[Rfam]
RNA sequence: GCAAUAGAAUAGGAUUUCUCAAGGGUGGUCGGCACACUCCCAAAUAGAAAGGGGGUGAUGCUGGGUGACAGUUUUUGAAACAUUAAUGUUUGCAAUUGGAUUUGCUGGAUUGAUCGUAAGCAUUCUGUCAUUUAACCGAAAAAAAUAACCCACCCUUGAGUUGAUGGCUCGGGUGGAUUAUCCUGCCUACACGCCGAUCCCCUGCUGAGGGAAUCGUUUAUUGCUGGACCGGACAUGUUGCUGCAUGUUCG
Numbered sequence: 001g002c003a004a005u006a007g008a009a010u011a012g013g014a015u016u017u018c019u020c021a022a023g024g025g026u027g028g029u030c031g032g033c034a035c036a037c038u039c040c041c042a043a044a045u046a047g048a049a050a051g052g053g054g055g056u057g058a059u060g061c062u063g064g065g066u067g068a069c070a071g072u073u074u075u076u077g078a079a080a081c082a083u084u085a086a087u088g089u090u091u092g093c094a095a096u097u098g099g100a101u102u103u104g105c106u107g108g109a110u111u112g113a114u115c116g117u118a119a120g121c122a123u124u125c126u127g128u129c130a131u132u133u134a135a136c137c138g139a140a141a142a143a144a145a146u147a148a149c150c151c152a153c154c155c156u157u158g159a160g161u162u163g164a165u166g167g168c169u170c171g172g173g174u175g176g177a178u179u180a181u182c183c184u185g186c187c188u189a190c191a192c193g194c195c196g197a198u199c200c201c202c203u204g205c206u207g208a209g210g211g212a213a214u215c216g217u218u219u220a221u222u223g224c225u226g227g228a229c230c231g232g233a234c235a236u237g238u239u240g241c242u243g244c245a246u247g248u249u250c251g
Base pairs, nucleotide, nucleotide: 001224002223003222004221005220007218008217011214016197017196018160019159020158021157022156023155024154025153027150028149029148035057036056038055039054040053041052067129068128069127070126071125104121105120106119170185171184172183198212199211200210201209230251231250232249233248234247235246236245237244238243

Notes: Shown here is a 251-nucleotide RNA from Neobacillus rhizophilus, a member of the family "BsrG". bsrE, bsrG and bsrH pair through intermolecular interactions with antisense sRNAs. A search with the family's covariance model found it, with a score of 127 bits. The family's consensus secondary structure was predicted with WAR. By type it is a small RNA.